[Rfam]
RNA sequence: AGCAUUCUGCAUACGAGCUGAGAUUUUAUCAGACCAUCACCAGAUCAUCAGCACUGAUGAGACUCUCAAGAUAAGUAAGGCG
Numbered sequence: 001a002g003c004a005u006u007c008u009g010c011a012u013a014c015g016a017g018c019u020g021a022g023a024u025u026u027u028a029u030c031a032g033a034c035c036a037u038c039a040c041c042a043g044a045u046c047a048u049c050a051g052c053a054c055u056g057a058u059g060a061g062a063c064u065c066u067c068a069a070g071a072u073a074a075g076u077a078a079g080g081c082g
Stems, first nucleotide, its partner, number of pairs: 002081002005078002008075001011072002017067001020065003024062009

Rfam assigns this 82-nucleotide sequence from Schistosoma japonicum to the family "mir-3492 microRNA precursor family". Taxonomically the source falls in Schistosoma (Eukaryota, Rhabditophora, Trematoda, Digenea). Rfam 15.1 lists 21,496 matches to the family in 13 species. Its family is annotated with RISC complex and miRNA-mediated post-transcriptional gene silencing in the Gene Ontology.